[Rfam]
RNA sequence: GGGCUGGCUUUAGCCCAGCGGUUCCUUCGAGUCUGGCUUCCCAAUCGCCGGGGCCGAUUAGUCCAGUGGUUCGAGACCCACGGACGCUCUCCAGUCCUUUU
Numbered sequence: 001g002g003g004c005u006g007g008c009u010u011u012a013g014c015c016c017a018g019c020g021g022u023u024c025c026u027u028c029g030a031g032u033c034u035g036g037c038u039u040c041c042c043a044a045u046c047g048c049c050g051g052g053g054c055c056g057a058u059u060a061g062u063c064c065a066g067u068g069g070u071u072c073g074a075g076a077c078c079c080a081c082g083g084a085c086g087c088u089c090u091c092c093a094g095u096c097c098u099u100u101u
Stems, first nucleotide, its partner, number of pairs: 002096006013085001015083002018081001020079002026075005

A member of the RNA family "Vault RNA" from Cavia porcellus, 101 nucleotides long. This family of RNAs are found as part of the enigmatic vault ribonucleoprotein complex. The complex consists of a major vault protein (MVP), two minor vault proteins (VPARP and TEP1), and several small untranslated RNA molecules. For this family Rfam cites "Evolution of Vault RNAs" (Stadler et al., Mol Biol Evol, 2009). Lineage of the source: Eukaryota > Bilateria > Vertebrata > Rodentia > Cavia. The family's RNA type in Rfam is non-coding RNA gene.